[Rfam]
RNA sequence: AUCUACAUUCAAACACUACUUUCAAGCUCUUUUCAAGGUUCUUUACCUACCACAUCUAUAUUCACCAUGUCUCCCUGCGCCUGCAACUGCUGCUCCGGCGACUGCAAGUCCUGCGCUUGCUCCACCUGCACUGUAUGUCAAUGCUUGCU
Numbered sequence: 001a002u003c004u005a006c007a008u009u010c011a012a013a014c015a016c017u018a019c020u021u022u023c024a025a026g027c028u029c030u031u032u033u034c035a036a037g038g039u040u041c042u043u044u045a046c047c048u049a050c051c052a053c054a055u056c057u058a059u060a061u062u063c064a065c066c067a068u069g070u071c072u073c074c075c076u077g078c079g080c081c082u083g084c085a086a087c088u089g090c091u092g093c094u095c096c097g098g099c100g101a102c103u104g105c106a107a108g109u110c111c112u113g114c115g116c117u118u119g120c121u122c123c124a125c126c127u128g129c130a131c132u133g134u135a136u137g138u139c140a141a142u143g144c145u146u147g148c149u
Stems, first nucleotide, its partner, number of pairs: 076100003083093003104129003113120002
RNA: A. fumigatus sRNA Afu_254
Organism: Penicillium italicum